[Rfam]
RNA sequence: AGUAGAGUAAAUAUUGUGCGUUAAGUGCUAUGAGAUGGGAUGUAGCUCAUAGACGAAGGCUUUUGGAACCUUGAAUAUCAGACCCUAAAGCCGCGGUACAAUAUUGCGUCCGCUGCU
Numbered sequence: 001a002g003u004a005g006a007g008u009a010a011a012u013a014u015u016g017u018g019c020g021u022u023a024a025g026u027g028c029u030a031u032g033a034g035a036u037g038g039g040a041u042g043u044a045g046c047u048c049a050u051a052g053a054c055g056a057a058g059g060c061u062u063u064u065g066g067a068a069c070c071u072u073g074a075a076u077a078u079c080a081g082a083c084c085c086u087a088a089a090g091c092c093g094c095g096g097u098a099c100a101a102u103a104u105u106g107c108g109u110c111c112g113c114u115g116c117u
Stems, first nucleotide, its partner, number of pairs: 001117005010105009019095003025054002028052007038111005058092006
RNA: THF (Tetrahydrofolate) riboswitch aptamer